[Rfam]
RNA sequence: UCCCCGCUUUUCCUCCCUAAGCGGGGCCUGUUGCGCGAUCAGCACGCAGGCAUUUAUGCCCGACCUUGUGUCGGGCUUUUUUUA
Numbered sequence: 001u002c003c004c005c006g007c008u009u010u011u012c013c014u015c016c017c018u019a020a021g022c023g024g025g026g027c028c029u030g031u032u033g034c035g036c037g038a039u040c041a042g043c044a045c046g047c048a049g050g051c052a053u054u055u056a057u058g059c060c061c062g063a064c065c066u067u068g069u070g071u072c073g074g075g076c077u078u079u080u081u082u083u084a
Stems, first nucleotide, its partner, number of pairs: 003025006026051004033047003058076007
This 84-nucleotide RNA from Limnohabitans sp. JirII-31 belongs to the Rfam family "Burkholderia RNA 7 (anti-hemB)". On this family, see Weinberg et al., Nucleic Acids Res 2007: "Identification of 22 candidate structured RNAs in bacteria using the CMfinder comparative genomics pipeline". This RNA motif was identified by computational search in b-proteobacteria Burkholderia. Co-purified with Hfq, expression confirmed by Northern blot. The family's RNA type in Rfam is small RNA. The organism belongs to Limnohabitans, within Bacteria.